[Rfam]
Shown here is a 95-nucleotide sequence from Empedobacter falsenii, a member of the family "SAM-I/IV (S-adenosyl methionine) riboswitch aptamer". Lineage of the source: Bacteria > Pseudomonadati > Flavobacteriia > Weeksellaceae > Empedobacter. Gene Ontology terms of the family: S-adenosylmethionine metabolic process and regulation of gene expression. It scores 48 bits against the family's covariance model. Clan: SAM clan.
RNA sequence: ACACCGUAUUUCGAAUCGUAGAAAACGAUACCAACCGAGAGUAGUCUCCACGGUGGUAAAACAAUACGGGAGUUCAUCCAAAAACAACGAAAAAU
Numbered sequence: 001a002c003a004c005c006g007u008a009u010u011u012c013g014a015a016u017c018g019u020a021g022a023a024a025a026c027g028a029u030a031c032c033a034a035c036c037g038a039g040a041g042u043a044g045u046c047u048c049c050a051c052g053g054u055g056g057u058a059a060a061a062c063a064a065u066a067c068g069g070g071a072g073u074u075c076a077u078c079c080a081a082a083a084a085c086a087a088c089g090a091a092a093a094a095u
Base pairs, nucleotide, nucleotide: 006067007066008065009064010063015029016028017027018026019025030057031056032055035053036052037051039048040047042091069079070078071077